[Rfam]
RNA sequence: AUCACCUGGGGAUCUUGCUAAAACGCAGAUUCUGAUUCAGUGGUCUAGGCUGGGACCUGAGGUUCUACAUUUCUAGCAGGCUCCCAGGUGAUGCUUA
Number, nucleotide and partner (000 for none) at each position: 001a000002u000003c090004a089005c088006c000007u000008g000009g084010g083011g082012a000013u000014c080015u079016u078017g077018c076019u075020a074021a072022a071023a070024c000025g068026c000027a066028g065029a064030u000031u062032c061033u060034g000035a000036u000037u000038c000039a000040g000041u000042g000043g000044u000045c000046u000047a000048g000049g000050c000051u000052g000053g000054g000055a000056c000057c000058u000059g000060a033061g032062g031063u000064u029065c028066u027067a000068c025069a000070u023071u022072u021073c000074u020075a019076g018077c017078a016079g015080g014081c000082u011083c010084c009085c000086a000087g000088g005089u004090g003091a000092u000093g000094c000095u000096u000097a000
mir-544 microRNA precursor family: a 97-nucleotide sequence from Trichechus manatus. The match comes from Rfam's covariance-model search (81 bits). Lineage of the source: Eukaryota > Craniata > Gnathostomata > Sirenia > Trichechus manatus. The family has 16 seed sequences and 10,750 matches in Rfam 15.1. The base pairs follow the family's consensus structure, which was predicted with RNAalifold.